RNA sequence: UUCGCCAACUAAUGGGCAGCUAAACUUUUUAACUCAAUCGCAGAACCAAAACUGCGUAAGUGGCGAAGUGUUUCAAGGAAACAUUUUGUGCUGAGAAUGUGGCUGAAAGCAAGUACGCAAUCAGUCUGCAAAACACAUAGGGUAAACAAAUUUAGGCAAAAGUCGAUAGGACAGCACUCCUGUCGACUUUUU
Numbered sequence: 001u002u003c004g005c006c007a008a009c010u011a012a013u014g015g016g017c018a019g020c021u022a023a024a025c026u027u028u029u030u031a032a033c034u035c036a037a038u039c040g041c042a043g044a045a046c047c048a049a050a051a052c053u054g055c056g057u058a059a060g061u062g063g064c065g066a067a068g069u070g071u072u073u074c075a076a077g078g079a080a081a082c083a084u085u086u087u088g089u090g091c092u093g094a095g096a097a098u099g100u101g102g103c104u105g106a107a108a109g110c111a112a113g114u115a116c117g118c119a120a121u122c123a124g125u126c127u128g129c130a131a132a133a134c135a136c137a138u139a140g141g142g143u144a145a146a147c148a149a150a151u152u153u154a155g156g157c158a159a160a161a162g163u164c165g166a167u168a169g170g171a172c173a174g175c176a177c178u179c180c181u182g183u184c185g186a187c188u189u190u191u192u
Base pairs, nucleotide, nucleotide: 001067002066003065004064005063006062007061039056040055041054042053043052046155048153049152050151068136069135070134071133072132073131081100082099083098084097085096086095087094088177089176090175091174092173093172101126102125103124104123105122106121160189161188162187163186164185165184166183167182168181169180170178
Description
A member of the RNA family "FuFi-1 RNA", 192 nucleotides long. By type it is a small RNA.